[Rfam]
RNA sequence: UGAAAGUUCACCCGCUAGCGAGGUAUAGAGUUCCUAUGCGUUGAUUGGAUUCGCUAUCCAUAGGAACUUCAUACCGUGCUCUUGGAUGGCUUUCC
Numbered sequence: 001u002g003a004a005a006g007u008u009c010a011c012c013c014g015c016u017a018g019c020g021a022g023g024u025a026u027a028g029a030g031u032u033c034c035u036a037u038g039c040g041u042u043g044a045u046u047g048g049a050u051u052c053g054c055u056a057u058c059c060a061u062a063g064g065a066a067c068u069u070c071a072u073a074c075c076g077u078g079c080u081c082u083u084g085g086a087u088g089g090c091u092u093u094c095c
Stems, first nucleotide, its partner, number of pairs: 012085003017080004022075005028069010
The family of this 95-nucleotide RNA from Culex quinquefasciatus is "mir-276 microRNA precursor family". Rfam links the family to the GO terms miRNA-mediated post-transcriptional gene silencing and RISC complex. The sequence is in the family's curated seed alignment. For this family Rfam cites "Identification of microRNAs expressed in two mosquito vectors, Aedes albopictus and Culex quinquefasciatus" (Skalsky et al., BMC Genomics, 2010).